[Rfam]
RNA sequence: UGAUGGUGGCCUUUUUGGGGACAGAUGUCCGUGUCGCGCAUUUCUGAGUCGGCGGUGUGGCCGGUGACUAGACCCCCUGCCCCCUGGGC
Number, nucleotide and partner (000 for none) at each position: 001u000002g000003a000004u086005g000006g084007u000008g083009g082010c000011c000012u000013u000014u000015u000016u000017g000018g078019g077020g076021a000022c000023a000024g000025a000026u000027g068028u067029c066030c064031g000032u000033g061034u060035c059036g058037c057038g056039c055040a000041u000042u000043u000044c000045u000046g000047a000048g000049u000050c000051g000052g000053c000054g000055g039056u038057g037058u036059g035060g034061c033062c000063g000064g030065u000066g029067a028068c027069u000070a000071g000072a000073c000074c000075c000076c020077c019078u018079g000080c000081c000082c009083c008084c006085u000086g004087g000088g000089c000